[Rfam]
Nucleotides: 109
Base pairs, nucleotide, nucleotide: 008021010020011019012018059109061107062106063105064104065102067101068100069099070098072096073095074094076092077091078090079089080088
Number, partner (000 for none) and nucleotide at each position: 001000u002000a003000g004000a005000a006000g007000u008021u009000u010020c011019a012018u013000u014000a015000c016000a017000a018012a019011u020010g021008a022000u023000a024000a025000g026000a027000u028000u029000u030000u031000u032000g033000u034000a035000u036000u037000c038000g039000u040000g041000u042000a043000u044000a045000c046000g047000a048000a049000u050000c051000g052000u053000u054000g055000a056000a057000a058000c059109a060000a061107a062106g063105u064104a065102c066000a067101a068100u069099a070098c071000c072096c073095c074094a075000u076092g077091u078090c079089u080088g081000c082000u083000u084000a085000g086000c087000a088080c089079g090078g091077a092076c093000a094074u095073g096072g097000g098070g099069u100068a101067u102065g103000c104064u105063a106062c107061u108000c109059u